[Rfam]
RNA sequence: AAUAAAAUAAAGGGGAGCUAGUGCAUGCUGGUUGAGAGGAAGUAAAUUGUAACUUCGACCCUUAUACCUGAUUUGGAUAAUGCCAACGUAGGAAACUUUGAAUUUGAAUGA
Number, nucleotide and partner (000 for none) at each position: 001a000002a000003u000004a000005a000006a099007a098008u000009a000010a000011a062012g061013g060014g059015g000016a000017g032018c031019u030020a029021g028022u000023g000024c000025a000026u000027g000028c021029u020030g019031g018032u017033u000034g000035a000036g000037a000038g000039g056040a055041a054042g053043u052044a000045a000046a000047u000048u000049g000050u000051a000052a043053c042054u041055u040056c039057g000058a000059c014060c013061c012062u011063u000064a000065u000066a000067c092068c091069u090070g089071a000072u000073u086074u085075g084076g083077a000078u000079a000080a000081u000082g000083c076084c075085a074086a073087c000088g000089u070090a069091g068092g067093a000094a000095a000096c000097u000098u007099u006100g000101a000102a000103u000104u000105u000106g000107a000108a000109u000110g000111a000
A member of the RNA family "TPP riboswitch aptamer (THI element)" from Garciella nitratireducens, 111 nucleotides long. A search with the family's covariance model found it, with a score of 60 bits. Its family is annotated with thiamine pyrophosphate binding in the Gene Ontology. The family's consensus secondary structure is taken from published work.